[Rfam]
RNA sequence: AUCUGGCCAAAUCUCAGCUGGCAACUGUGAGUAUUGUUGUACCUCCUCACAGUGUCCAUUGGGGUUGUGCUAAAU
Dot-bracket structure: ...((((..((((((((..((.(..((((((..............)))))).)..)).))))))))..))))...
The record is a 75-nucleotide sequence from Synaphobranchus kaupii, which matches "mir-216 microRNA precursor family" in Rfam. The literature on the family includes a 2008 paper in Gene by Shao et al., "Identification of novel chicken microRNAs and analysis of their genomic organization".